tRNA: a 72-nucleotide sequence from Micromonospora narathiwatensis. The match comes from Rfam's covariance-model search (59 bits). Taxonomically the source falls in Micromonospora (Bacteria, Bacillati, Actinomycetota, Actinomycetes). By type it is a transfer RNA. Rfam's curators write: Transfer RNA (tRNA) molecules are approximately 80 nucleotides in length.
RNA sequence: UCGGCCGUGGUGUAAUUGGCAACACCCAAGAUUUUGGCUCUUGAGUUUCAGGUUCGAAUCCUGGCGGCCGAG
Number, nucleotide and partner (000 for none) at each position: 001u071002c070003g069004g068005c067006c066007g065008u000009g000010g025011u024012g023013u022014a000015a000016u000017u000018g000019g000020c000021a000022a013023c012024a011025c010026c000027c043028a042029a041030g040031a039032u000033u000034u000035u000036g000037g000038c000039u031040c030041u029042u028043g027044a000045g000046u000047u000048u064049c063050a062051g061052g060053u000054u000055c000056g000057a000058a000059u000060c052061c051062u050063g049064g048065c007066g006067g005068c004069c003070g002071a001072g000